RNA sequence: UCCAACGGGUAAAAACAAUUGCCCCUUUAUUUAGUGAUAAAUAAAGCAAACUUCUCGAAUUGACGGGGAAGCCCUUAGAGCCUUAUACACUAACUUAUCAUGGAGACAUAGAUAAGGGCGUUGCUAACUACAACGGUAUAGUAAAAGAGAUAAGGAUUGGGCGAUCCGCAGCCAAGUAUCUUUAAAAGAUAAAGGUUCAACGACUGACGUGGGAAGAAACUUACUAGCCAACUAUGUCUAAUAAGUUUAUGAUACAGUCUGCACUUUAGGGAAACUUAAAG
Numbered sequence: 001u002c003c004a005a006c007g008g009g010u011a012a013a014a015a016c017a018a019u020u021g022c023c024c025c026u027u028u029a030u031u032u033a034g035u036g037a038u039a040a041a042u043a044a045a046g047c048a049a050a051c052u053u054c055u056c057g058a059a060u061u062g063a064c065g066g067g068g069a070a071g072c073c074c075u076u077a078g079a080g081c082c083u084u085a086u087a088c089a090c091u092a093a094c095u096u097a098u099c100a101u102g103g104a105g106a107c108a109u110a111g112a113u114a115a116g117g118g119c120g121u122u123g124c125u126a127a128c129u130a131c132a133a134c135g136g137u138a139u140a141g142u143a144a145a146a147g148a149g150a151u152a153a154g155g156a157u158u159g160g161g162c163g164a165u166c167c168g169c170a171g172c173c174a175a176g177u178a179u180c181u182u183u184a185a186a187a188g189a190u191a192a193a194g195g196u197u198c199a200a201c202g203a204c205u206g207a208c209g210u211g212g213g214a215a216g217a218a219a220c221u222u223a224c225u226a227g228c229c230a231a232c233u234a235u236g237u238c239u240a241a242u243a244a245g246u247u248u249a250u251g252a253u254a255c256a257g258u259c260u261g262c263a264c265u266u267u268a269g270g271g272a273a274a275c276u277u278a279a280a281g
Stems, first nucleotide, its partner, number of pairs: 005026001007024006030040001032039001051216004056211002061170002064168004072161003171196002179188001200260001202259005219246005225240003266279005